[Rfam]
RNA: mir-34 microRNA precursor family
RNA sequence: UACGCAUUGGCAGUGUGGUUAGCUGGUUGUUUAGUUAUCAACAACAGCCAGUGACGGCACUGCCUCUGCGUG
Numbered sequence: 001u002a003c004g005c006a007u008u009g010g011c012a013g014u015g016u017g018g019u020u021a022g023c024u025g026g027u028u029g030u031u032u033a034g035u036u037a038u039c040a041a042c043a044a045c046a047g048c049c050a051g052u053g054a055c056g057g058c059a060c061u062g063c064c065u066c067u068g069c070g071u072g
Base pairs, nucleotide, nucleotide: 002071003070004069005068006067009064010063012061013060014059015058016057018055019054020053021052024050025049026048027047028046029045030044031043